[Rfam]
RNA sequence: AAUGUUAAGAAGAAGCCAUCCGCUUCUCACCUUACAGCCAAGGCUCGUAAGGUUAUCAGGCCCAGUUGUAAUGUGUAUAUUAUGCGGAUGGAGUGCGUCCAUUCGCUUUUUCUAUGCCUU
Numbered sequence: 001a002a003u004g005u006u007a008a009g010a011a012g013a014a015g016c017c018a019u020c021c022g023c024u025u026c027u028c029a030c031c032u033u034a035c036a037g038c039c040a041a042g043g044c045u046c047g048u049a050a051g052g053u054u055a056u057c058a059g060g061c062c063c064a065g066u067u068g069u070a071a072u073g074u075g076u077a078u079a080u081u082a083u084g085c086g087g088a089u090g091g092a093g094u095g096c097g098u099c100c101a102u103u104c105g106c107u108u109u110u111u112c113u114a115u116g117c118c119u120u
Stems, first nucleotide, its partner, number of pairs: 011027006029053003034048002037044002084106009
Overview:
The record is a 120-nucleotide RNA from Caloramator sp. E03, which matches "Ribosomal protein L20 leader" in Rfam. Pairs were carried over by alignment from the consensus structure, which was predicted with CMfinder. This family is a putative r-protein leader autoregulatory structure found in B. subtilis and other low-GC Gram-positive bacteria.